[Rfam]
A member of the RNA family "MIR807 microRNA precursor family" from Oryza glumipatula, 158 nucleotides long. Taxonomically the source falls in Oryza (Eukaryota, Embryophyta, Tracheophyta, Mesangiospermae). Rfam links the family to the GO terms miRNA-mediated post-transcriptional gene silencing and RISC complex.
RNA sequence: AACCACACUAUCAAUGAAUGGAUUCACCCGCGAGAUGACGUGACUGUUUCACCUAAGACGAGGACAUGUCAUCUUCGAGUGUGGAACAACCACGUCCUCAUCCUAUAUGGAACAACCACGUCAUCUCAUAGGUGAAUUCAUUCAUCGAUAGUGUGAUU
Numbered sequence: 001a002a003c004c005a006c007a008c009u010a011u012c013a014a015u016g017a018a019u020g021g022a023u024u025c026a027c028c029c030g031c032g033a034g035a036u037g038a039c040g041u042g043a044c045u046g047u048u049u050c051a052c053c054u055a056a057g058a059c060g061a062g063g064a065c066a067u068g069u070c071a072u073c074u075u076c077g078a079g080u081g082u083g084g085a086a087c088a089a090c091c092a093c094g095u096c097c098u099c100a101u102c103c104u105a106u107a108u109g110g111a112a113c114a115a116c117c118a119c120g121u122c123a124u125c126u127c128a129u130a131g132g133u134g135a136a137u138u139c140a141u142u143c144a145u146c147g148a149u150a151g152u153g154u155g156a157u158u
Base pairs, nucleotide, nucleotide: 001158002157004155005154006153007152009150010149011148012147014145015144017142018141019140021138022137023136024135025134026133027132028131030129032127033126035124036123037122038121039120041118042117045114046113047112048111051108054105055104057102058101063096064095065094
For this family Rfam cites "Rice embryogenic calli express a unique set of microRNAs, suggesting regulatory roles of microRNAs in plant post-embryogenic development" (Luo et al., FEBS Lett, 2006).